[Rfam]
RNA sequence: CUAGCACUUUCACAGAUCUUCCCCUAGGCAGUAGGGCCAGGAUUUGGUAGCUGGUGCUGAAAGAAAACCGUUGAUUGUAUCUUUGCCAAGGUACUAUAUACUGGUGGCAAUUGACAUUCAACGGGACAGAA
Number, nucleotide and partner (000 for none) at each position: 001c000002u000003a058004g057005c056006a055007c054008u053009u000010u000011c000012a000013c046014a045015g044016a000017u042018c041019u040020u039021c000022c036023c035024c034025u033026a000027g000028g000029c000030a000031g000032u000033a025034g024035g023036g022037c000038c000039a020040g019041g018042a017043u000044u015045u014046g013047g000048u000049a000050g000051c000052u000053g008054g007055u006056g005057c004058u003059g000060a000061a000062a000063g000064a000065a000066a000067a000068c125069c124070g000071u121072u120073g119074a118075u000076u116077g115078u000079a000080u113081c000082u000083u110084u109085g108086c107087c106088a000089a000090g102091g101092u000093a000094c000095u000096a000097u000098a000099u000100a000101c091102u090103g000104g000105u000106g087107g086108c085109a084110a083111u000112u000113g080114a000115c077116a076117u000118u074119c073120a072121a071122c000123g000124g069125g068126a000127c000128a000129g000130a000131a000

About this RNA: A member of the RNA family "Small nucleolar RNA SNORA30/SNORA37 family" from Oryctolagus cuniculus, 131 nucleotides long. NCBI's taxonomy places the organism under Eukaryota, Vertebrata, Mammalia, Euarchontoglires, Oryctolagus. A search with the family's covariance model found it, with a score of 106 bits. By type it is an H/ACA-box small nucleolar RNA. The members of this family belong to the H/ACA class of snoRNAs that guide the sites of modification of uridines to pseudouridines. This family includes human ACA30 (SNORA30), ACA37 (SNORA37) and the mouse homolog MBI-26. Both ACA37 and ACA30 are predicted to guide the pseudouridylation of residue U4643 of 28S rRNA. Pairs were carried over by alignment from the consensus structure, which was predicted with RNAfold.